[Rfam]
RNA: Burkholderia RNA 7 (anti-hemB)
Organism: Roseateles puraquae
Nucleotides: 086
Stems, first nucleotide, its partner, number of pairs: 003025006027053004034046004058078008
Number, partner (000 for none) and nucleotide at each position: 001000u002000c003025c004024c005023u006022g007021c008020u009000u010000u011000u012000c013000c014000u015000c016000c017000c018000u019000g020008a021007g022006c023005a024004g025003g026000c027053g028052c029051g030050u031000u032000a033000a034046c035045g036044u037043u038000a039000u040000g041000a042000c043037a044036g045035c046034g047000a048000a049000g050030a051029u052028g053027c054000g055000u056000u057000g058078a059077g060076c061075c062074c063073c064072g065071g066000c067000c068000a069000g070000c071065c072064c073063g074062g075061g076060g077059c078058u079000u080000u081000u082000g083000u084000u085000u086000u